[Rfam]
RNA sequence: AUUGAUUUGCGGGGGGACUUAUUAGUUGAGAAGGUUAAAACCUGACCCUUUGAACCUGUUAGUUAAUACUAACGUAGGGAAGCUAGGCGUUUCGGCUA
Numbered sequence: 001a002u003u004g005a006u007u008u009g010c011g012g013g014g015g016g017a018c019u020u021a022u023u024a025g026u027u028g029a030g031a032a033g034g035u036u037a038a039a040a041c042c043u044g045a046c047c048c049u050u051u052g053a054a055c056c057u058g059u060u061a062g063u064u065a066a067u068a069c070u071a072a073c074g075u076a077g078g079g080a081a082g083c084u085a086g087g088c089g090u091u092u093c094g095g096c097u098a
Stems, first nucleotide, its partner, number of pairs: 006086002009083002011049004016043001017026003033042003055078004059072004
This 98-nucleotide sequence from Acetobacterium woodii belongs to the Rfam family "TPP riboswitch aptamer (THI element)". The match comes from Rfam's covariance-model search (62 bits). The source organism's lineage runs through Bacteria, Bacillati, Bacillota, Eubacteriales and Acetobacterium woodii. The family's consensus secondary structure is taken from published work.